Shown here is a 510-nucleotide part of an RNA from Owenia fusiformis, a member of the family "Eukaryotic large subunit ribosomal RNA". Clan: LSU clan. The source organism's lineage runs through Eukaryota, Bilateria, Protostomia, Annelida and Owenia. It scores 3088 bits against the family's covariance model.

RNA sequence: CCCUCCGAAGUUUCCCUCAGGAUAGCUGGCGCUCUUUGGAGCAGUUUUAUCCGGUAAAGCGAAUGAUUAGAGGCCUUGGGGACGAAACGUCCUCAACCUAUUCUCAAACUUUAAAUGGGUAAGAUGUUCGUCUCGCUCGAUUGGAGUCGAACACCGAAUGCGAGUGCCAAGUGGGCCACUUUUGGUAAGCAGAACUGGCGCUGUGGGAUGAACCAAACGUCCGGUUAAGGCGCCCGACGAGGACGCUCAUCAGACACCAUAAAAGGUGUUGGUUGAUAUAGACAGCAGGACGGUGGCCAUGGAAGUCGGAAUCCGCUAAGGAGUGUGUAACAACUCACCUGCCGAAUCAACUAGCCCUGAAAAUGGAUGGCGCUCGAGCGUCGGGCCCAUACCGGACCGUCGGGGCAAUACGAGAGCCCAGCGCUCCACGCCCCGACGAGUAGGAGGGCCGAUCCGGUGAGCACCGAAGCCUCGCACGUGGGUGCGGGUGGAGCCGCCGGGUGUGCAGAU
Numbered sequence: 001c002c003c004u005c006c007g008a009a010g011u012u013u014c015c016c017u018c019a020g021g022a023u024a025g026c027u028g029g030c031g032c033u034c035u036u037u038g039g040a041g042c043a044g045u046u047u048u049a050u051c052c053g054g055u056a057a058a059g060c061g062a063a064u065g066a067u068u069a070g071a072g073g074c075c076u077u078g079g080g081g082a083c084g085a086a087a088c089g090u091c092c093u094c095a096a097c098c099u100a101u102u103c104u105c106a107a108a109c110u111u112u113a114a115a116u117g118g119g120u121a122a123g124a125u126g127u128u129c130g131u132c133u134c135g136c137u138c139g140a141u142u143g144g145a146g147u148c149g150a151a152c153a154c155c156g157a158a159u160g161c162g163a164g165u166g167c168c169a170a171g172u173g174g175g176c177c178a179c180u181u182u183u184g185g186u187a188a189g190c191a192g193a194a195c196u197g198g199c200g201c202u203g204u205g206g207g208a209u210g211a212a213c214c215a216a217a218c219g220u221c222c223g224g225u226u227a228a229g230g231c232g233c234c235c236g237a238c239g240a241g242g243a244c245g246c247u248c249a250u251c252a253g254a255c256a257c258c259a260u261a262a263a264a265g266g267u268g269u270u271g272g273u274u275g276a277u278a279u280a281g282a283c284a285g286c287a288g289g290a291c292g293g294u295g296g297c298c299a300u301g302g303a304a305g306u307c308g309g310a311a312u313c314c315g316c317u318a319a320g321g322a323g324u325g326u327g328u329a330a331c332a333a334c335u336c337a338c339c340u341g342c343c344g345a346a347u348c349a350a351c352u353a354g355c356c357c358u359g360a361a362a363a364u365g366g367a368u369g370g371c372g373c374u375c376g377a378g379c380g381u382c383g384g385g386c387c388c389a390u391a392c393c394g395g396a397c398c399g400u401c402g403g404g405g406c407a408a409u410a411c412g413a414g415a416g417c418c419c420a421g422c423g424c425u426c427c428a429c430g431c432c433c434c435g436a437c438g439a440g441u442a443g444g445a446g447g448g449c450c451g452a453u454c455c456g457g458u459g460a461g462c463a464c465c466g467a468a469g470c471c472u473c474g475c476a477c478g479u480g481g482g483u484g485c486g487g488g489u490g491g492a493g494c495c496g497c498c499g500g501g502u503g504u505g506c507a508g509a510u
Base pairs, nucleotide, nucleotide: 001448002447003446004445005444006443011024013022014021015020027169028168029167030166031165032164033163045124046123047122048121049120050119051118052117057112058110059109064106065105066104069101071099072098073097076096077095078094079093080092081091083089126152127151128150129149130148132146133145134144175199176198177197178196180194181193182192183191184190204215205214206213219397220396221395222394223393225391229387230386231385238384244380245379246378264358265357266356268355269354270353271352272351273350274349275348276347277346285342286341287340288339289338291315292314293313297309298308316320321336325334326333398438399437400436401435402434403433404432405431406430450505452502453501454500455499456498457497458496459495461494462493469489470488475484476483477482